[Rfam]
RNA sequence: GUUACAAGAAGACCUCCUAACUUGUUGUAACAAGUAUCCUAAACUUUUCUUUUUCAUAAUAAUCUCCCUAUUAAGUCACCCCAUUGGGUGGCUUUUUU
Numbered sequence: 001g002u003u004a005c006a007a008g009a010a011g012a013c014c015u016c017c018u019a020a021c022u023u024g025u026u027g028u029a030a031c032a033a034g035u036a037u038c039c040u041a042a043a044c045u046u047u048u049c050u051u052u053u054u055c056a057u058a059a060u061a062a063u064c065u066c067c068c069u070a071u072u073a074a075g076u077c078a079c080c081c082c083a084u085u086g087g088g089u090g091g092c093u094u095u096u097u098u
Stems, first nucleotide, its partner, number of pairs: 001031007009023003073094008
Shown here is a 98-nucleotide RNA from Streptococcus sp. oral taxon 071, a member of the family "Cia-dependent small RNA csRNA1". It is one of the family's seed sequences.